[Rfam]
Nucleotides: 363
Stems, first nucleotide, its partner, number of pairs: 001325003011202004018195003092189003096184002104177006110154002114150008125136003162170002207248006217241001222236003259321003262317003266302016305312002327354003337346003
Number, partner (000 for none) and nucleotide at each position: 001325c002324g003323a004000u005000u006000a007000a008000a009000a010000g011202g012201u013200c014199c015000g016000u017000a018195g019194u020193c021000u022000a023000a024000g025000a026000a027000u028000g029000a030000a031000a032000c033000u034000u035000g036000u037000c038000c039000u040000g041000u042000a043000a044000u045000g046000u047000g048000g049000g050000a051000a052000u053000c054000u055000c056000u057000a058000g059000u060000a061000c062000c063000a064000a065000a066000u067000a068000c069000g070000a071000c072000c073000g074000a075000g076000a077000a078000g079000a080000a081000u082000u083000c084000c085000a086000g087000a088000g089000u090000u091000a092189g093188g094187a095000g096184c097183g098000a099000a100000g101000g102000a103000g104177g105176g106175c107174u108173a109172g110154a111153u112000u113000a114150u115149u116148g117147a118146g119145c120144a121143g122000c123000g124000a125136g126135a127134g128000g129000u130000g131000a132000a133000a134127u135126u136125u137000g138000a139000u140000g141000a142000c143121c144120u145119g146118c147117u148116u149115a150114g151000g152000a153111g154110u155000a156000c157000a158000a159000g160000a161000g162170g163169c164000c165000g166000a167000a168000a169163g170162c171000g172109c173108u174107a175106g176105u177104c178000a179000a180000g181000a182000a183097c184096g185000a186000a187094u188093c189092c190000g191000a192000u193020g194019a195018u196000c197000a198000a199014g200013g201012a202011c203000g204000u205000a206000g207248g208247c209246u210245g211244g212243a213000g214000u215000a216000u217241c218000a219000a220000a221000c222236a223235c224234g225000a226000u227000u228000a229000g230000a231000g232000a233000c234224c235223g236222u237000a238000g239000u240000a241217g242000u243212u244211c245210c246209a247208g248207c249000a250000g251000u252000a253000a254000a255000c256000u257000a258000u259321g260320c261319c262317u263316a264315c265000a266302c267301u268300g269299u270298u271297g272296u273295a274294u275293u276292u277291a278290u279289g280288u281287u282000u283000u284000a285000u286000a287281g288280a289279u290278g291277u292276g293275a294274g295273u296272g297271u298270g299269a300268c301267a302266g303000a304000a305312g306311a307000g308000a309000a310000a311306u312305c313000u314000a315264g316263u317262a318000g319261g320260g321259c322000u323003u324002u325001g326000g327354g328353g329352a330000g331000a332000g333000u334000a335000c336000g337346c338345g339344c340000g341000c342000a343000a344339g345338c346337g347000a348000u349000a350000a351000a352329u353328u354327u355000a356000a357000a358000g359000g360000a361000a362000a363000u
A member of the RNA family "Microsporidia small subunit ribosomal RNA" from Kabatana rondoni, 363 nucleotides of a longer RNA. The family has 46 seed sequences and 1,035 matches in Rfam 15.1. Rfam's curators put it in the seed alignment. NCBI's taxonomy places the organism under Eukaryota, Opisthokonta, Fungi, Microsporidia, Kabatana. Rfam links the family to the GO terms ribosome and structural constituent of ribosome.